[Rfam]
RNA: Alphaproteobacterial sRNA BjrC1505
RNA sequence: AAUCGCUCGUUUACGGUCGAUUAAGCUUUCCCAGGUAUGACUAUCAGCGUCCUCUUUGGACACCGAGUGGCUCCUGUCCACUCUGUUUGACGCCUCCCUGUUAUCAACUUCAAAGCCGCCGGCAACGGCGGCUCUUUUUUU
Numbered sequence: 001a002a003u004c005g006c007u008c009g010u011u012u013a014c015g016g017u018c019g020a021u022u023a024a025g026c027u028u029u030c031c032c033a034g035g036u037a038u039g040a041c042u043a044u045c046a047g048c049g050u051c052c053u054c055u056u057u058g059g060a061c062a063c064c065g066a067g068u069g070g071c072u073c074c075u076g077u078c079c080a081c082u083c084u085g086u087u088u089g090a091c092g093c094c095u096c097c098c099u100g101u102u103a104u105c106a107a108c109u110u111c112a113a114a115g116c117c118g119c120c121g122g123c124a125a126c127g128g129c130g131g132c133u134c135u136u137u138u139u140u141u
Base pairs, nucleotide, nucleotide: 002044003043007016008015017039022037023036049061050060051059052058065083066082067081068080069079070078089102090101091100092099112135114133115132116131117130118129119128120127121126